A member of the RNA family "Plastid-psbA-1 3UTR RNA" from Salicornia brachiata, 115 nucleotides long. The base pairs follow the family's consensus structure, which was predicted with LocARNA. Rfam's curators put it in the seed alignment. A reference for the family is Richter et al. (2023), "Retrograde signaling in plants: A critical review focusing on the GUN pathway and beyond", Plant Commun. Plastid psbA-1 is a non-coding RNA (ncRNA) present in plastids. It was identified in inverted repeat sequences in the 3 prime untranslate region (3UTR) of photosystem II quinone-binding protein (psbA).

RNA sequence: UUGAAGCUCCAUCUACAAAUGGAUAAAGUUUCAUUUUUAGUUUAGUGUAUUCGAAUUAAUGUAAAGGGGCAGUGCUGGUUUCUUGUUCUGUCAAGAAAUUGGUUAUUGCUCCUUU
Numbered sequence: 001u002u003g004a005a006g007c008u009c010c011a012u013c014u015a016c017a018a019a020u021g022g023a024u025a026a027a028g029u030u031u032c033a034u035u036u037u038u039a040g041u042u043u044a045g046u047g048u049a050u051u052c053g054a055a056u057u058a059a060u061g062u063a064a065a066g067g068g069g070c071a072g073u074g075c076u077g078g079u080u081u082c083u084u085g086u087u088c089u090g091u092c093a094a095g096a097a098a099u100u101g102g103u104u105a106u107u108g109c110u111c112c113u114u115u
Base pairs, nucleotide, nucleotide: 008023009022010021011020012019063115064114065113066112067111068110069109070108071107072106073105074104077100078099080097081096082095083094084093